[Rfam]
RNA: R2 RNA element
RNA sequence: AUUUCACUGUUUCGCUAGUAACAAACCAGUACAGCAUCCUGCGGAAAGCAUCUACUCGAAUCCUAGAGCCUGAGGUAGAGGGGUUUUAGUCGGUAGGUCCGAGGACUUCUCAGGAAUCCGACACUACCCAGUCGUACGGACGGGUGGGUGUCUUUUGAAGAUUUACCCUCUUCCACGAAA
Numbered sequence: 001a002u003u004u005c006a007c008u009g010u011u012u013c014g015c016u017a018g019u020a021a022c023a024a025a026c027c028a029g030u031a032c033a034g035c036a037u038c039c040u041g042c043g044g045a046a047a048g049c050a051u052c053u054a055c056u057c058g059a060a061u062c063c064u065a066g067a068g069c070c071u072g073a074g075g076u077a078g079a080g081g082g083g084u085u086u087u088a089g090u091c092g093g094u095a096g097g098u099c100c101g102a103g104g105a106c107u108u109c110u111c112a113g114g115a116a117u118c119c120g121a122c123a124c125u126a127c128c129c130a131g132u133c134g135u136a137c138g139g140a141c142g143g144g145u146g147g148g149u150g151u152c153u154u155u156u157g158a159a160g161a162u163u164u165a166c167c168c169u170c171u172u173c174c175a176c177g178a179a180a
Stems, first nucleotide, its partner, number of pairs: 040050003056178003074174002077171002080168003089122005098114002101111003124150001126149005